The family of this 173-nucleotide RNA from Catonella morbi is "Clostridiales-1 RNA". It is annotated as a small RNA. The organism belongs to Catonella morbi, within Bacteria. It scores 103 bits against the family's covariance model.

RNA sequence: UGAUAUAAGUGUCAAAAGUAUAAAAAUUCUGUGCAAGCUUGCUUGCAAAAGAAUUUAUUAUCUUUUAACACGCAAAAAAUAUGAGUAAGUAGCCAUUUUUUGCAAAAAAAUGAGCGGAUUACGAAUAUUUUUGCAAGGAUUGCAAGAAGCGAAGCUGUAGCAAUCCUGUAUCA
Numbered sequence: 001u002g003a004u005a006u007a008a009g010u011g012u013c014a015a016a017a018g019u020a021u022a023a024a025a026a027u028u029c030u031g032u033g034c035a036a037g038c039u040u041g042c043u044u045g046c047a048a049a050a051g052a053a054u055u056u057a058u059u060a061u062c063u064u065u066u067a068a069c070a071c072g073c074a075a076a077a078a079a080u081a082u083g084a085g086u087a088a089g090u091a092g093c094c095a096u097u098u099u100u101u102g103c104a105a106a107a108a109a110a111u112g113a114g115c116g117g118a119u120u121a122c123g124a125a126u127a128u129u130u131u132u133g134c135a136a137g138g139a140u141u142g143c144a145a146g147a148a149g150c151g152a153a154g155c156u157g158u159a160g161c162a163a164u165c166c167u168g169u170a171u172c173a
Base pairs, nucleotide, nucleotide: 001173002172003171004170005169006168007167010070011069012068017064018063020061021060022059023058025056026055027053028052029051030050032048033046034045035044036043037042075132076131077130078129079128080127081126082125085122086121087120088119092115093114094112095111096110097109098108099107100106101105137166138165139164140163141162142161143160148156149155150154